ZMP/ZTP riboswitch aptamer (pfl RNA motif): a 91-nucleotide RNA from Actinoplanes octamycinicus. The match comes from Rfam's covariance-model search (50 bits). The base pairs follow the family's consensus structure, which is taken from published work.
[Rfam]
RNA sequence: GGGGUGGGCCGUGACUGGCGCGUUCGGAUGGGUGACCAUUGGGGAGCGGCCUCGUCGAGAUGACGACUUGCCGUGCGCCUGGGCCUUCUAC
Numbered sequence: 001g002g003g004g005u006g007g008g009c010c011g012u013g014a015c016u017g018g019c020g021c022g023u024u025c026g027g028a029u030g031g032g033u034g035a036c037c038a039u040u041g042g043g044g045a046g047c048g049g050c051c052u053c054g055u056c057g058a059g060a061u062g063a064c065g066a067c068u069u070g071c072c073g074u075g076c077g078c079c080u081g082g083g084c085c086u087u088c089u090a091c
Base pairs, nucleotide, nucleotide: 003055006052007051008050009049010048011047012046015043016042017079018078019077020076021075028039029038030037031036070084071083072082